RNA sequence: AUGGUCUGGGGAAAGGCACCUGUGUGGUUGCACCUGCCCCAUGGCCUGUGCAGCCUGUACCAGGCAGCCCUACCCUGACCUAGAGUGAAUUCCCAGGGGGAGACUGCCCCGGGGUUUGAAUUUGCAGUAACAUGUGUGACCAUUCUAGCAGCAGCUUGAUGAUCAUGUAUGAUACUACAAAGUGGU
Dot-bracket structure: ..((((.(((....(((.((((.(((((((.((..............)).)))))...))))))..)))...))).))))...........(((.((.(.....).))..))).......((((.((((.((....(((.((((..(((....))).)))).)))....)).)))).)))).....
A member of the RNA family "Small Cajal body specific RNA 16" from Sciurus vulgaris, 186 nucleotides long. It is annotated as a small Cajal body RNA. The base pairs follow the family's consensus structure, which was predicted with RNAfold. The match comes from Rfam's covariance-model search (171 bits). Rfam's curators write: scaRNAs are a specific class of small nuclear RNAs which localise to the Cajal bodies and guide the modification of RNA polymerase II transcribed spliceosomal RNAs U1, U2, U4, U5 and U12. For this family Rfam cites "Cajal body-specific small nuclear RNAs: a novel class of 2'-O-methylation and pseudouridylation guide RNAs" (Darzacq et al., EMBO J, 2002).